[Rfam]
A member of the RNA family "BsrG" from Cytobacillus solani, 281 nucleotides long. For this family Rfam cites "Identification of regulatory RNAs in Bacillus subtilis" (Irnov et al., Nucleic Acids Res, 2010). Pairs were carried over by alignment from the consensus structure, which was predicted with WAR. It scores 83 bits against the family's covariance model. The organism belongs to Cytobacillus, within Bacteria. By type it is a small RNA. Rfam 15.1 lists 614 matches to the family in 343 species.
RNA sequence: UAAUAGAAUAGAAUAACUCAAGGGUGGUCAGCAUUCCCGUUUCUUGUUCCUCUUUUAUAGAGAAUCUAAGAAUUAAAGGGGGUGCUGCGUGUGAGCGUAUUUCAAGCGUUAGUAAUUAUGAUAAGCUUUUCAAGCUUGAUUGUUGCUGUUAUCGCGUUAUCACAAAAAAAGUAAACCGCCCUUGAGCCUGCAAGCAAUUGGCGGUUUACCGUUCUGAGUUGCUGAUCGCCUUUGAGGCGACGCUAUUUUAUUACGGCCGUUUGGUGUUACUAGCACCAGAC
Numbered sequence: 001u002a003a004u005a006g007a008a009u010a011g012a013a014u015a016a017c018u019c020a021a022g023g024g025u026g027g028u029c030a031g032c033a034u035u036c037c038c039g040u041u042u043c044u045u046g047u048u049c050c051u052c053u054u055u056u057a058u059a060g061a062g063a064a065u066c067u068a069a070g071a072a073u074u075a076a077a078g079g080g081g082g083u084g085c086u087g088c089g090u091g092u093g094a095g096c097g098u099a100u101u102u103c104a105a106g107c108g109u110u111a112g113u114a115a116u117u118a119u120g121a122u123a124a125g126c127u128u129u130u131c132a133a134g135c136u137u138g139a140u141u142g143u144u145g146c147u148g149u150u151a152u153c154g155c156g157u158u159a160u161c162a163c164a165a166a167a168a169a170a171g172u173a174a175a176c177c178g179c180c181c182u183u184g185a186g187c188c189u190g191c192a193a194g195c196a197a198u199u200g201g202c203g204g205u206u207u208a209c210c211g212u213u214c215u216g217a218g219u220u221g222c223u224g225a226u227c228g229c230c231u232u233u234g235a236g237g238c239g240a241c242g243c244u245a246u247u248u249u250a251u252u253a254c255g256g257c258c259g260u261u262u263g264g265u266g267u268u269a270c271u272a273g274c275a276c277c278a279g280a281c
Base pairs, nucleotide, nucleotide: 001253002252003251004250005249007247008246009245011243014225015223017186018185019184020183021182022181023180024179026176028174031085032084033083035082036081037080038079093153094152097149098148099147107120108119130145132143196213197212198211226240227239228238229237259281260280261279262278263277264276265275266274267273268272